[Rfam]
RNA sequence: CGACCCCGGCCGGGAGAGUCUUCGCGUCACCGGCGUCGCGAAGCGCCGAAGGGGCAACUUCCCCGUCAACCUCUCAGGCACCAGGGACCGGUCGGGACAG
Numbered sequence: 001c002g003a004c005c006c007c008g009g010c011c012g013g014g015a016g017a018g019u020c021u022u023c024g025c026g027u028c029a030c031c032g033g034c035g036u037c038g039c040g041a042a043g044c045g046c047c048g049a050a051g052g053g054g055c056a057a058c059u060u061c062c063c064c065g066u067c068a069a070c071c072u073c074u075c076a077g078g079c080a081c082c083a084g085g086g087a088c089c090g091g092u093c094g095g096g097a098c099a100g
Base pairs, nucleotide, nucleotide: 006095007094008093009092010091011090012089013088020043021042022041023040024039025038026037045079046078047077048075049074052073053072054071059065

Shown here is a 100-nucleotide RNA sequence from Phytoactinopolyspora halophila, a member of the family "Glycine riboswitch aptamer". The family is grouped with related families in Rfam's "Glycine riboswitch clan".